[Rfam]
RNA sequence: UUUUCGUCUGAAGUAAAGAGGAUGAGAACCUCCGCAGGAGGUUUGAGCCGAGCGAAGCGAGACCACGUUGCUUUAGCAACGGCCCGCAGGGCAAGCAUCGAAGAUGCGCGUAAUCCUCUCUCGCCGACCA
Numbered sequence: 001u002u003u004u005c006g007u008c009u010g011a012a013g014u015a016a017a018g019a020g021g022a023u024g025a026g027a028a029c030c031u032c033c034g035c036a037g038g039a040g041g042u043u044u045g046a047g048c049c050g051a052g053c054g055a056a057g058c059g060a061g062a063c064c065a066c067g068u069u070g071c072u073u074u075a076g077c078a079a080c081g082g083c084c085c086g087c088a089g090g091g092c093a094a095g096c097a098u099c100g101a102a103g104a105u106g107c108g109c110g111u112a113a114u115c116c117u118c119u120c121u122c123g124c125c126g127a128c129c130a
Base pairs, nucleotide, nucleotide: 015121017119018118019117020116021115023113034092042088044086045085049059050058066081067080068079069078070077071076
Background: Rfam assigns this 130-nucleotide RNA sequence from Rahnella aquatilis to the family "RtT RNA". This family represents a bacterial cis-regulatory element known as RtT RNA. The exact function of RtT is unknown although it is thought that it may be involved in changing the cellular response in relation to amino acid starvation. Its family is annotated with cellular response to amino acid starvation in the Gene Ontology. Pairs were carried over by alignment from the consensus structure, which is taken from published work. Lineage of the source: Bacteria > Pseudomonadati > Pseudomonadota > Rahnella > Rahnella aquatilis.